[Rfam]
RNA sequence: GCACUUGAAUCUUUCCUAUUCCUUGCUGCUCAGUGCAGGUAUGAGGACACAUGGUGGUACAACUGGAGCAGAGGAAAUACAGACAGGUGCUUGUCCAUUUGUCUUGGUACUUGUCUUUACCACUCCGCCACACUU
Numbered sequence: 001g002c003a004c005u006u007g008a009a010u011c012u013u014u015c016c017u018a019u020u021c022c023u024u025g026c027u028g029c030u031c032a033g034u035g036c037a038g039g040u041a042u043g044a045g046g047a048c049a050c051a052u053g054g055u056g057g058u059a060c061a062a063c064u065g066g067a068g069c070a071g072a073g074g075a076a077a078u079a080c081a082g083a084c085a086g087g088u089g090c091u092u093g094u095c096c097a098u099u100u101g102u103c104u105u106g107g108u109a110c111u112u113g114u115c116u117u118u119a120c121c122a123c124u125c126c127g128c129c130a131c132a133c134u135u
Base pairs, nucleotide, nucleotide: 002056003055004054005053013047014046015045017043018042019041021039022038068128069127071125072124073123081116082115083114084113085112086111087110088109095107096106097105
The record is a 135-nucleotide RNA sequence from Erinaceus europaeus, which matches "Small nucleolar RNA SNORA55" in Rfam. Pairs were carried over by alignment from the consensus structure, which was predicted with PFOLD. Rfam classes the family as an H/ACA-box small nucleolar RNA. From the family's description: ACA55 is a member of the H/ACA class of snoRNA that guide the sites of modification of uridines to pseudouridines.